The family of this 80-nucleotide sequence from Arminella tubonensis is "chrB-a RNA". The source organism's lineage runs through Bacteria, Alphaproteobacteria, Hyphomicrobiales, Rhizobiaceae and Arminella.
[Rfam]
RNA sequence: CCCAUGGGGUCGCGAUCACCCCACGAGGCGACAGCCGAAGUAUCGCGUCCGACAACCGAUCAACGGAAGGACGCGUCAUG
Numbered sequence: 001c002c003c004a005u006g007g008g009g010u011c012g013c014g015a016u017c018a019c020c021c022c023a024c025g026a027g028g029c030g031a032c033a034g035c036c037g038a039a040g041u042a043u044c045g046c047g048u049c050c051g052a053c054a055a056c057c058g059a060u061c062a063a064c065g066g067a068a069g070g071a072c073g074c075g076u077c078a079u080g
Stems, first nucleotide, its partner, number of pairs: 005023006045074006